[Rfam]
The record is an 82-nucleotide RNA from Corchorus capsularis, which matches "Small nucleolar RNA R160" in Rfam.
About the family: snoR160 is a C/D box small nucleolar RNA, which acts as a methylation guide for 25S ribosomal RNA in plants. snoR160 has been alternatively named snoZ270 in rice.
It scores 56 bits against the family's covariance model.
For this family Rfam cites "The high diversity of snoRNAs in plants: identification and comparative study of 120 snoRNA genes from Oryza sativa" (Chen et al., Nucleic Acids Res, 2003).
By type it is a C/D-box small nucleolar RNA.

RNA sequence: AGCAAAAGGAUGAAACUUUUUGAAAUCUGAAUCCUCUGUGUGGGAAAUCCCAUUUUUGGGUCUUCAAAGUUCUCUGAUUGCU
Numbered sequence: 001a002g003c004a005a006a007a008g009g010a011u012g013a014a015a016c017u018u019u020u021u022g023a024a025a026u027c028u029g030a031a032u033c034c035u036c037u038g039u040g041u042g043g044g045a046a047a048u049c050c051c052a053u054u055u056u057u058g059g060g061u062c063u064u065c066a067a068a069g070u071u072c073u074c075u076g077a078u079u080g081c082u
Base pairs, nucleotide, nucleotide: 001082002081003080004079005078